mir-9/mir-79 microRNA precursor family: a 75-nucleotide RNA from Eufriesea mexicana. Rfam 15.1 lists 5,647 matches to the family in 934 species. Rfam links the family to the GO terms miRNA-mediated post-transcriptional gene silencing and RISC complex.
RNA sequence: GUUUAUUUUUCUUUGGUGAUCUAACUGUAUGGUAAAUUAAAAACCAUAAAGCUAGAUCAGCAAGGCAAAAUAUAC
Number, nucleotide and partner (000 for none) at each position: 001g075002u074003u000004u072005a071006u000007u069008u068009u067010u000011c065012u064013u063014u062015g061016g000017u059018g058019a057020u056021c055022u054023a053024a000025c051026u050027g000028u048029a047030u046031g045032g044033u043034a000035a000036a000037u000038u000039a000040a000041a000042a000043a033044c032045c031046a030047u029048a028049a000050a026051g025052c000053u023054a022055g021056a020057u019058c018059a017060g000061c015062a014063a013064g012065g011066c000067a009068a008069a007070a000071u005072a004073u000074a002075c001